[Rfam]
RNA: mir-223 microRNA precursor family
RNA sequence: CUGGUGAGAGCUGCAGUGCCGCACUGCGUGUAUUUGACAAGCUGAGUUUGACACUCAGUCUGGCAGAGUGUCAGUUUGUCAAAUACCCCAAGUGAGGCAUCUGCUGAG
Numbered sequence: 001c002u003g004g005u006g007a008g009a010g011c012u013g014c015a016g017u018g019c020c021g022c023a024c025u026g027c028g029u030g031u032a033u034u035u036g037a038c039a040a041g042c043u044g045a046g047u048u049u050g051a052c053a054c055u056c057a058g059u060c061u062g063g064c065a066g067a068g069u070g071u072c073a074g075u076u077u078g079u080c081a082a083a084u085a086c087c088c089c090a091a092g093u094g095a096g097g098c099a100u101c102u103g104c105u106g107a108g
Stems, first nucleotide, its partner, number of pairs: 022094004028088001030086014050072004055067002